[Rfam]
Shown here is a 225-nucleotide RNA sequence from Pelotomaculum isophthalicicum, a member of the family "T-box leader". It is annotated as a cis-regulatory leader. Its family is annotated with tRNA binding in the Gene Ontology. Uncharged tRNA acts as the effector for transcription antitermination of genes in the T-box leader family. T-boxes are found upstream of many aminoacyl-tRNA synthetase genes and some amino acid biosynthetic genes usually in Gram-positive bacteria. The base pairs follow the family's consensus structure, which is taken from published work. The source organism's lineage runs through Bacteria, Clostridia, Desulfotomaculaceae, Pelotomaculum and Pelotomaculum isophthalicicum.
RNA sequence: AAAAACCCUGUGAAGGGGUAAAGUAAUCAGCUGUAUCCUUUUCAGAGAGCCGGUGGUGGCUGUGAACCGGUAAGAGCGGCAUGAUGAAACAGGCUCCCUGGAGGAGGUUUGCUGAAAGCAGAAGUAGGCAAACCCGGGUUAGUUCCCGUUAUCACAAGCUCGAGUGGGCCGGAGUUAUUCCGGCUAAUAAGGGUGGCACCGCGGGAGUAACCUCUCGUCCCUAUU
Numbered sequence: 001a002a003a004a005a006c007c008c009u010g011u012g013a014a015g016g017g018g019u020a021a022a023g024u025a026a027u028c029a030g031c032u033g034u035a036u037c038c039u040u041u042u043c044a045g046a047g048a049g050c051c052g053g054u055g056g057u058g059g060c061u062g063u064g065a066a067c068c069g070g071u072a073a074g075a076g077c078g079g080c081a082u083g084a085u086g087a088a089a090c091a092g093g094c095u096c097c098c099u100g101g102a103g104g105a106g107g108u109u110u111g112c113u114g115a116a117a118g119c120a121g122a123a124g125u126a127g128g129c130a131a132a133c134c135c136g137g138g139u140u141a142g143u144u145c146c147c148g149u150u151a152u153c154a155c156a157a158g159c160u161c162g163a164g165u166g167g168g169c170c171g172g173a174g175u176u177a178u179u180c181c182g183g184c185u186a187a188u189a190a191g192g193g194u195g196g197c198a199c200c201g202c203g204g205g206a207g208u209a210a211c212c213u214c215u216c217g218u219c220c221c222u223a224u225u
Base pairs, nucleotide, nucleotide: 007104008103015099016098017097018096026085027084028083029082038074039073040072049071050070051069052068053067054066107133108132109131110130111129112128113127135148136147137146167185168184169183170182171181172180173179190222191221192220193219201218202217203216204215205214